[Rfam]
RNA: DUF3800-VI RNA
RNA sequence: CGAUCAGGAGGGUUGCAUUUGCGAUCCGUUAUGAAGCAUUCAUACCUGGUUG
Numbered sequence: 001c002g003a004u005c006a007g008g009a010g011g012g013u014u015g016c017a018u019u020u021g022c023g024a025u026c027c028g029u030u031a032u033g034a035a036g037c038a039u040u041c042a043u044a045c046c047u048g049g050u051u052g
Stems, first nucleotide, its partner, number of pairs: 001052008010027007030044005